[Rfam]
RNA sequence: AGGGGAAGCCUCCAAAAGGAUCGCAUGGAUCCGUCAAGACGUACUUGUAGGCGACGACCUUCCCAUCCCAUGAAAGAAUGGAAGGAAUGAUGGAUCAAUGCGAUCCCUUUGGAUGCUUCCCC
Numbered sequence: 001a002g003g004g005g006a007a008g009c010c011u012c013c014a015a016a017a018g019g020a021u022c023g024c025a026u027g028g029a030u031c032c033g034u035c036a037a038g039a040c041g042u043a044c045u046u047g048u049a050g051g052c053g054a055c056g057a058c059c060u061u062c063c064c065a066u067c068c069c070a071u072g073a074a075a076g077a078a079u080g081g082a083a084g085g086a087a088u089g090a091u092g093g094a095u096c097a098a099u100g101c102g103a104u105c106c107c108u109u110u111g112g113a114u115g116c117u118u119c120c121c122c
Stems, first nucleotide, its partner, number of pairs: 002122005008116002011113006018106004023101003026097001028096009
The record is a 122-nucleotide RNA from Paspalum vaginatum, which matches "mir-393 microRNA precursor family" in Rfam. A search with the family's covariance model found it, with a score of 66 bits. For this family Rfam cites "Role of microRNAs and other sRNAs of plants in their changing environments" (Kruszka et al., J Plant Physiol, 2012). The family has 27 seed sequences and 1,052 matches in Rfam 15.1. The source organism's lineage runs through Eukaryota, Streptophyta, Liliopsida, Petrosaviidae and Paspalum.